[Rfam]
RNA sequence: UGAUGUCACUAGGGGAGCCGCACAGGCUGAGAUUGGAUCAAUAGAUCCUAGACCCUCUGAACCUGAUCUGGUUUAUACCAGCGUAGGGAAGUGGAAGAUCGUUGGC
Dot-bracket structure: .....(((((((((..(((.....))).......((((......))))....)))).....((((..((((......))))..))))..)))))............
RNA: TPP riboswitch aptamer (THI element)
Organism: Paenibacillus sp. PvR098